[Rfam]
RNA sequence: GCGGGCGUGGUGUAGCCUGGUAUCACUUAAGCUUGCCAAGCUUAUAACUCGGGUUCAAAUCCCGGCACCCGCA
Numbered sequence: 001g002c003g004g005g006c007g008u009g010g011u012g013u014a015g016c017c018u019g020g021u022a023u024c025a026c027u028u029a030a031g032c033u034u035g036c037c038a039a040g041c042u043u044a045u046a047a048c049u050c051g052g053g054u055u056c057a058a059a060u061c062c063c064g065g066c067a068c069c070c071g072c073a
Stems, first nucleotide, its partner, number of pairs: 001072005007066001010026003028044005049065005

tRNA: a 73-nucleotide RNA from Thermoplasmatales archaeon SCGC AB-539-N05. It is annotated as a transfer RNA.